[Rfam]
A member of the RNA family "SAM (S-adenosyl methionine) riboswitch aptamer" from Kocuria palustris, 115 nucleotides long.
The literature on the family includes a 2008 paper in RNA by Weinberg et al., "The aptamer core of SAM-IV riboswitches mimics the ligand-binding site of SAM-I riboswitches".
The base pairs follow the family's consensus structure, which is taken from published work.
Taxonomically the source falls in Kocuria palustris (Bacteria, Bacillati, Micrococcales, Micrococcaceae).
RNA sequence: GAUCAAGAGUUCCGGCCCACAGCCCUGGCUGGCCGGACGGCAACCCUCUCCCGUAGCGGGGUGCCCCAGGUGAGGAUCGGGCCGCUCGCUAGACCGCGUGCGGCAAGUACGGCGC
Numbered sequence: 001g002a003u004c005a006a007g008a009g010u011u012c013c014g015g016c017c018c019a020c021a022g023c024c025c026u027g028g029c030u031g032g033c034c035g036g037a038c039g040g041c042a043a044c045c046c047u048c049u050c051c052c053g054u055a056g057c058g059g060g061g062u063g064c065c066c067c068a069g070g071u072g073a074g075g076a077u078c079g080g081g082c083c084g085c086u087c088g089c090u091a092g093a094c095c096g097c098g099u100g101c102g103g104c105a106a107g108u109a110c111g112g113c114g115c
Base pairs, nucleotide, nucleotide: 001078002077003076004075009038011037012036013035014034015033016032021030022029039065040064041063044061045060046059048056049055081104082103083102084101085100087098088097089096